[Rfam]
RNA sequence: AAGCCAGCCAAUUAAUAUGCUUAUCUAAAUGUGCUUCUGCAGAAAUUUAGAAACAACUGGCAAUAGUAAUGCCAUUUUUUGAGCCUUAAGGGUAACUGAAGUUAGUCAUUACAGUUCCUCAAAAUGGCUAUAAUA
Numbered sequence: 001a002a003g004c005c006a007g008c009c010a011a012u013u014a015a016u017a018u019g020c021u022u023a024u025c026u027a028a029a030u031g032u033g034c035u036u037c038u039g040c041a042g043a044a045a046u047u048u049a050g051a052a053a054c055a056a057c058u059g060g061c062a063a064u065a066g067u068a069a070u071g072c073c074a075u076u077u078u079u080u081g082a083g084c085c086u087u088a089a090g091g092g093u094a095a096c097u098g099a100a101g102u103u104a105g106u107c108a109u110u111a112c113a114g115u116u117c118c119u120c121a122a123a124a125u126g127g128c129u130a131u132a133a134u135a
Stems, first nucleotide, its partner, number of pairs: 003061005016043001018041003071128004083115002087111003091107003
The record is a 135-nucleotide RNA from Jaculus jaculus, which matches "Small nucleolar RNA SNORA33" in Rfam. The base pairs follow the family's consensus structure, which was predicted with PFOLD. From the family's description: ACA33 is a member of the H/ACA class of snoRNA that guide the sites of modification of uridines to pseudouridines. Rfam links the family to the GO terms RNA processing and nucleolus. The match comes from Rfam's covariance-model search (103 bits).